[Rfam]
RNA sequence: UAUAAAAAUAAAUGAUAUACCUGUAUAUACUAGUAAUAUGGUCUAGUGUUUCUACGUCUUACCAUUGGAAGAAGACGCUAUAGGUUAAUGCUUUUGCUUU
Numbered sequence: 001u002a003u004a005a006a007a008a009u010a011a012a013u014g015a016u017a018u019a020c021c022u023g024u025a026u027a028u029a030c031u032a033g034u035a036a037u038a039u040g041g042u043c044u045a046g047u048g049u050u051u052c053u054a055c056g057u058c059u060u061a062c063c064a065u066u067g068g069a070a071g072a073a074g075a076c077g078c079u080a081u082a083g084g085u086u087a088a089u090g091c092u093u094u095u096g097c098u099u100u
Stems, first nucleotide, its partner, number of pairs: 019085007029047005056076005

The record is a 100-nucleotide RNA from Spiroplasma melliferum, which matches "Purine riboswitch aptamer" in Rfam. Pairs were carried over by alignment from the consensus structure, which is taken from published work. Taxonomically the source falls in Spiroplasma (Bacteria, Bacillati, Mycoplasmatota, Entomoplasmatales).